Overview
Shown here is an 84-nucleotide RNA from Zootermopsis nevadensis, a member of the family "Mammalian CPEB3 ribozyme".
RNA sequence: UUUCGCAAAAACGGGGUCACAGCAGGAGCGUUAAAUGUCGCGGUCCCGGUCGAACCCACGUAAUGAUGAGUCGUGAAUCCUGCU
Numbered sequence: 001u002u003u004c005g006c007a008a009a010a011a012c013g014g015g016g017u018c019a020c021a022g023c024a025g026g027a028g029c030g031u032u033a034a035a036u037g038u039c040g041c042g043g044u045c046c047c048g049g050u051c052g053a054a055c056c057c058a059c060g061u062a063a064u065g066a067u068g069a070g071u072c073g074u075g076a077a078u079c080c081u082g083c084u
Stems, first nucleotide, its partner, number of pairs: 013047006021084007028041003051073003
NCBI's taxonomy places the organism under Eukaryota, Arthropoda, Insecta, Dicondylia, Zootermopsis.